The family of this 87-nucleotide sequence from Atribacter laminatus is "c-di-GMP-I riboswitch aptamer". It scores 70 bits against the family's covariance model. The base pairs follow the family's consensus structure, which is taken from published work. The organism belongs to Atribacter, within Bacteria.
RNA sequence: UACCUGAAAAGGCAAACUUUCCUAAAGGAAAAGGCGCAAAGCUAAGAGCCUAAAGCGUUUAUAUGCCAUGGCAGUCGAGCCGCCAAA
Numbered sequence: 001u002a003c004c005u006g007a008a009a010a011g012g013c014a015a016a017c018u019u020u021c022c023u024a025a026a027g028g029a030a031a032a033g034g035c036g037c038a039a040a041g042c043u044a045a046g047a048g049c050c051u052a053a054a055g056c057g058u059u060u061a062u063a064u065g066c067c068a069u070g071g072c073a074g075u076c077g078a079g080c081c082g083c084c085a086a087a
Base pairs, nucleotide, nucleotide: 012037013036018031019030020029021028022027041080042079043078046076047075048072049071050070055066056065057064058063